[Rfam]
RNA: mir-263 microRNA precursor family
RNA sequence: CUCUGCUGGGCCUUGGCACUGGGAGAAUUCACAGGAGUUACAGUUUACCCGUGAAUUUCCUGAUGCCUCAGCUCAUUGGGG
Number, nucleotide and partner (000 for none) at each position: 001c000002u000003c079004u078005g077006c000007u075008g074009g073010g072011c000012c000013u000014u000015g067016g066017c065018a064019c000020u062021g061022g060023g058024a000025g057026a056027a000028u000029u054030c053031a052032c051033a000034g049035g000036a000037g000038u000039u000040a000041c000042a000043g000044u000045u000046u000047a000048c000049c034050c000051g032052u031053g030054a029055a000056u026057u025058u023059c000060c022061u021062g020063a000064u018065g017066c016067c015068u000069c000070a000071g000072c010073u009074c008075a007076u000077u005078g004079g003080g000081g000